Overview:
The family of this 143-nucleotide RNA sequence from Limnobaculum parvum is "Leucine operon leader". The match comes from Rfam's covariance-model search (50 bits). The source organism's lineage runs through Bacteria, Gammaproteobacteria, Enterobacterales, Budviciaceae and Limnobaculum. The literature on the family includes a 1982 paper in Annu Rev Genet by Kolter and Yanofsky, "Attenuation in amino acid biosynthetic operons". Rfam's curators write: At least 6 amino acid operons are known to be regulated by attenuation.

RNA sequence: GAGUACUGGAUCGCAUGUUUACUUCUAUUCGUUUUCUCAGCCUCCUCCUCCUCGCAUCUUGUUGCGCGGCUGGCUUGUGGAAGACGAACUGAUUCGAUUCAGAAAAGACACAAGAAACCCGCGCUACCUGCGCGGGUUUUUUU
Numbered sequence: 001g002a003g004u005a006c007u008g009g010a011u012c013g014c015a016u017g018u019u020u021a022c023u024u025c026u027a028u029u030c031g032u033u034u035u036c037u038c039a040g041c042c043u044c045c046u047c048c049u050c051c052u053c054g055c056a057u058c059u060u061g062u063u064g065c066g067c068g069g070c071u072g073g074c075u076u077g078u079g080g081a082a083g084a085c086g087a088a089c090u091g092a093u094u095c096g097a098u099u100c101a102g103a104a105a106a107g108a109c110a111c112a113a114g115a116a117a118c119c120c121g122c123g124c125u126a127c128c129u130g131c132g133c134g135g136g137u138u139u140u141u142u143u
Stems, first nucleotide, its partner, number of pairs: 004103001006102004011097003015093002024084003028081005045072001048069002053066004114140011